A member of the RNA family "L31-Gammaproteobacteria ribosomal protein leader" from Marinobacter sp. X15-166B, 80 nucleotides long. Clan: Ribosomal Protein L31 Leader clan. The organism belongs to Marinobacter, within Bacteria.
RNA sequence: CAUGCGGUGCCUGGCAGCUUGCAUUGCUUUUAUCGUGAUGCAAAUCCGUGACUUGGUAGCGGCAUGACCUAUACAGAGGU
Numbered sequence: 001c002a003u004g005c006g007g008u009g010c011c012u013g014g015c016a017g018c019u020u021g022c023a024u025u026g027c028u029u030u031u032a033u034c035g036u037g038a039u040g041c042a043a044a045u046c047c048g049u050g051a052c053u054u055g056g057u058a059g060c061g062g063c064a065u066g067a068c069c070u071a072u073a074c075a076g077a078g079g080u
Base pairs, nucleotide, nucleotide: 001066002065003064004063005062007060008059011055013053014052015050